The record is a 54-nucleotide sequence from Triplophysa tibetana, which matches "Editing element of GABA-3 exon 9" in Rfam. It scores 64 bits against the family's covariance model. Rfam 15.1 lists 4,208 matches to the family in 654 species.
RNA sequence: AAGGUGUCGUAUGCCACAGCUAUGGAUUGGUUCAUCGCUGUGUGUUUCGCUUUC
Numbered sequence: 001a002a003g004g005u006g007u008c009g010u011a012u013g014c015c016a017c018a019g020c021u022a023u024g025g026a027u028u029g030g031u032u033c034a035u036c037g038c039u040g041u042g043u044g045u046u047u048c049g050c051u052u053u054c
Base pairs, nucleotide, nucleotide: 002053003052006051008049011046013045014044015042016041017040018039019038020037022035023034024033025032026031
Dot-bracket structure: .((..(.(..(.((((((((.(((((....))))).)))))).)))..).))).